[Rfam]
RNA sequence: GAGAAAGAGGCAGUUAAGACUUGCAGUGAUGUUUACAUCAUUUAAUGCAUGAACAUCACUUUAAGUCUGUGCUAACUCUA
Numbered sequence: 001g002a003g004a005a006a007g008a009g010g011c012a013g014u015u016a017a018g019a020c021u022u023g024c025a026g027u028g029a030u031g032u033u034u035a036c037a038u039c040a041u042u043u044a045a046u047g048c049a050u051g052a053a054c055a056u057c058a059c060u061u062u063a064a065g066u067c068u069g070u071g072c073u074a075a076c077u078c079u080a
Base pairs, nucleotide, nucleotide: 017068018067019066020065021064022063023062026059027058028057029056030055031054032053033052034051035050